The family of this 148-nucleotide RNA from Megasphaera elsdenii is "RT-14 RNA".

[Rfam]
RNA sequence: CUUUACUUCGAACGUCAGAAGGCGCAGCCCUACGGGGCUACGCACAGUACACGAAGAAAUAAAGGGGCCAUUCUCCAUGCACCAGCAAUGGCGCAAAAAACAAAAACGGAUACCCGCGGUUAGUACGGCGCACGCAGGAAGGCGCAGG
Numbered sequence: 001c002u003u004u005a006c007u008u009c010g011a012a013c014g015u016c017a018g019a020a021g022g023c024g025c026a027g028c029c030c031u032a033c034g035g036g037g038c039u040a041c042g043c044a045c046a047g048u049a050c051a052c053g054a055a056g057a058a059a060u061a062a063a064g065g066g067g068c069c070a071u072u073c074u075c076c077a078u079g080c081a082c083c084a085g086c087a088a089u090g091g092c093g094c095a096a097a098a099a100a101c102a103a104a105a106a107c108g109g110a111u112a113c114c115c116g117c118g119g120u121u122a123g124u125a126c127g128g129c130g131c132a133c134g135c136a137g138g139a140a141g142g143c144g145c146a147g148g
Base pairs, nucleotide, nucleotide: 003059004058006056007055008054009053014050015049022043023042024041026039027038028037029036079094080093082091083090084089113148114147116145117144118143120141128135129134
Dot-bracket structure: ..((.((((....((......(((.((((......)))).))).....))..)))).))...................((.(((....))).))..................((.(((.(.......((....)).....).))).))

It is annotated as a small RNA. The organism belongs to Megasphaera elsdenii, within Bacteria.